[Rfam]
About this RNA:
The family of this 89-nucleotide RNA from Salinicoccus roseus is "Glycine riboswitch aptamer". This family represents the bacterial glycine riboswitch. It scores 71 bits against the family's covariance model. The family has 44 seed sequences and 9,425 matches in Rfam 15.1. Lineage of the source: Bacteria > Bacillati > Bacillota > Bacilli > Salinicoccus.
RNA sequence: UUGAACAGUGCUCGAGAGAACGAGUGAUCGUCGCCGAAGGAGCAAGCCUAGCAGGUGAAUCUCUCAGGCAAAAGAACAGCACUGGGACG
Numbered sequence: 001u002u003g004a005a006c007a008g009u010g011c012u013c014g015a016g017a018g019a020a021c022g023a024g025u026g027a028u029c030g031u032c033g034c035c036g037a038a039g040g041a042g043c044a045a046g047c048c049u050a051g052c053a054g055g056u057g058a059a060u061c062u063c064u065c066a067g068g069c070a071a072a073a074g075a076a077c078a079g080c081a082c083u084g085g086g087a088c089g
Base pairs, nucleotide, nucleotide: 006084007083008082009081010080011079012078020031021030022029023028033069034068035067036065037064040063041062042061046056047055